RNA sequence: UGUGUGCGAUGGGUUGGCAGUGUAUUGUUAGCUGGUUGAAUAUAUGUCACCAGCAGCUAACAUAUAACUGCUACCUUAUUGCAUAUA
Number, nucleotide and partner (000 for none) at each position: 001u087002g086003u085004g084005u083006g082007c081008g080009a079010u078011g077012g076013g075014u000015u073016g072017g071018c070019a069020g068021u067022g065023u064024a063025u000026u000027g061028u060029u059030a058031g057032c056033u055034g054035g000036u052037u000038g000039a000040a000041u049042a000043u000044a000045u000046g000047u000048c000049a041050c000051c000052a036053g000054c034055a033056g032057c031058u030059a029060a028061c027062a000063u024064a023065u022066a000067a021068c020069u019070g018071c017072u016073a015074c000075c013076u012077u011078a010079u009080u008081g007082c006083a005084u004085a003086u002087a001
A member of the RNA family "mir-449 microRNA precursor family" from Octodon degus, 87 nucleotides long. Pairs were carried over by alignment from the consensus structure, which was predicted with RNAalifold. The source organism's lineage runs through Eukaryota, Bilateria, Gnathostomata, Euteleostomi and Octodon.